RNA sequence: UCGUCAGUGCGGUACAUCCUGACCUGCCCCGCCCUGCGGGCAGCGCGUGAUGAGCGCGUGCGCGAUGACGUUACGUGAUUACGUCACGCGUGGGCGGCGCUUGGCUGACGCAACAAGGCCAGCGCCGCCCUUCCCGACUCUGAC
Numbered sequence: 001u002c003g004u005c006a007g008u009g010c011g012g013u014a015c016a017u018c019c020u021g022a023c024c025u026g027c028c029c030c031g032c033c034c035u036g037c038g039g040g041c042a043g044c045g046c047g048u049g050a051u052g053a054g055c056g057c058g059u060g061c062g063c064g065a066u067g068a069c070g071u072u073a074c075g076u077g078a079u080u081a082c083g084u085c086a087c088g089c090g091u092g093g094g095c096g097g098c099g100c101u102u103g104g105c106u107g108a109c110g111c112a113a114c115a116a117g118g119c120c121a122g123c124g125c126c127g128c129c130c131u132u133c134c135c136g137a138c139u140c141u142g143a144c
Stems, first nucleotide, its partner, number of pairs: 024043003028040005070087002073084004090133001092130010

This 144-nucleotide sequence from Nesospiza acunhae belongs to the Rfam family "U8 small nucleolar RNA".
A reference for the family is Peculis et al. (2001), "The U8 snoRNA gene family: identification and characterization of distinct, functional U8 genes in Xenopus", Gene.
Rfam links the family to the GO terms nucleolus and RNA processing.
The family has 55 seed sequences and 1,597 matches in Rfam 15.1.